[Rfam]
RNA: Group II catalytic intron D1-D4-3
RNA sequence: UCGCGGGCAACUGCGAAUCUGGAGGAAGCCGAAGGCAAAGCGCUGGCCUGACGAACAGGAAGCGGAUACGAGGCGUUGCAGCGGGGUAAGACGGCCAAUAUCGUCAAAGCCCGAAACUUGCACGGAACGCUGUGACGUAUAUCCGACGGGCAUAAGCGUGAAGGUGGGUGCG
Numbered sequence: 001u002c003g004c005g006g007g008c009a010a011c012u013g014c015g016a017a018u019c020u021g022g023a024g025g026a027a028g029c030c031g032a033a034g035g036c037a038a039a040g041c042g043c044u045g046g047c048c049u050g051a052c053g054a055a056c057a058g059g060a061a062g063c064g065g066a067u068a069c070g071a072g073g074c075g076u077u078g079c080a081g082c083g084g085g086g087u088a089a090g091a092c093g094g095c096c097a098a099u100a101u102c103g104u105c106a107a108a109g110c111c112c113g114a115a116a117c118u119u120g121c122a123c124g125g126a127a128c129g130c131u132g133u134g135a136c137g138u139a140u141a142u143c144c145g146a147c148g149g150g151c152a153u154a155a156g157c158g159u160g161a162a163g164g165u166g167g168g169u170g171c172g
Stems, first nucleotide, its partner, number of pairs: 001016006030170002035165002040159005046151005063145005073138003077134007084112004090105004